[Rfam]
RNA sequence: CCAAAACCUAGCCCGACGGGGCGAAGAACCAGCACCUCACUGGCCUGGUUUUGGCAUUUUAAAUUGAGGG
Numbered sequence: 001c002c003a004a005a006a007c008c009u010a011g012c013c014c015g016a017c018g019g020g021g022c023g024a025a026g027a028a029c030c031a032g033c034a035c036c037u038c039a040c041u042g043g044c045c046u047g048g049u050u051u052u053g054g055c056a057u058u059u060u061a062a063a064u065u066g067a068g069g070g
Stems, first nucleotide, its partner, number of pairs: 001054008011022004029043004035070003
RNA: int-alpA RNA